[Rfam]
RNA sequence: CCUCCGGUUCUUUUCAGAACCACAAAUAUUCACAUGAGAUUUAGAG
Numbered sequence: 001c002c003u004c005c006g007g008u009u010c011u012u013u014u015c016a017g018a019a020c021c022a023c024a025a026a027u028a029u030u031c032a033c034a035u036g037a038g039a040u041u042u043a044g045a046g
Base pairs, nucleotide, nucleotide: 006021007020008019009018010017011016
The family of this 46-nucleotide RNA from Patiria miniata is "Histone 3' UTR stem-loop". Rfam classes the family as a cis-regulatory element. From the family's description: The mRNAs of metazoan histone genes lack a poly-A tail. 3' end processing occurs at a site between a highly conserved stem-loop (modelled by this family) and a purine rich region around 20 nts downstream (the histone downstream element, or HDE). The stem-loop is bound by a 31 kDa stem-loop binding protein (SLBP - also termed the histone hairpin binding protein, or HBP). Together with U7 snRNA binding of the HDE, SLBP binding nucleate s the formation of the processing complex.